[Rfam]
Nucleotides: 111
Base pairs, nucleotide, nucleotide: 002110003109004108005107006106007105008104013043014042015041016040017039021032022031023030026086027085028084029083044078045077046076047075049074050073052070053069054068055067082103087100088099089098090097
Number, partner (000 for none) and nucleotide at each position: 001000g002110g003109u004108u005107u006106a007105u008104u009000c010000c011000g012000a013043a014042g015041c016040g017039g018000c019000g020000a021032g022031a023030g024000a025000a026086c027085a028084g029083g030023c031022u032021c033000g034000a035000u036000g037000a038000c039017c040016c041015g042014c043013u044078g045077g046076c047075a048000a049074c050073c051000a052070c053069c054068g055067g056000c057000a058000a059000c060000g061000c062000a063000c064000a065000a066000g067055c068054c069053g070052g071000c072000a073050g074049g075047u076046g077045c078044c079000a080000a081000g082103u083029c084028c085027u086026g087100c088099c089098c090097c091000c092000a093000c094000c095000g096000a097090g098089g099088g100087g101000a102000c103082a104008a105007a106006u107005a108004a109003a110002u111000a